[Rfam]
RNA sequence: GGAGGCGACAGGGGUCUGGUGGCCCUCCCGGUCUUCAAAACCGGAGACACGCCAACAGCGUGUGGUGGGUUCGAUUCCCAUCCGCCUCC
Number, nucleotide and partner (000 for none) at each position: 001g089002g088003a087004g086005g085006c084007g083008a081009c000010a000011g026012g025013g024014g023015u022016c021017u000018g000019g000020u000021g016022g015023c014024c013025c012026u011027c000028c044029c043030g042031g041032u040033c000034u000035u000036c000037a000038a000039a000040a032041c031042c030043g029044g028045a000046g000047a063048c062049a061050c060051g059052c000053c000054a000055a000056c000057a000058g000059c051060g050061u049062g048063u047064g000065g000066u080067g079068g078069g077070u000071u000072c000073g000074a000075u000076u000077c069078c068079c067080a066081u008082c000083c007084g006085c005086c004087u003088c002089c001
Annotation
This 89-nucleotide sequence from Skermanella aerolata belongs to the Rfam family "Selenocysteine transfer RNA". It scores 75 bits against the family's covariance model. The base pairs follow the family's consensus structure, which is taken from published work. Taxonomically the source falls in Skermanella (Bacteria, Pseudomonadati, Alphaproteobacteria, Azospirillaceae).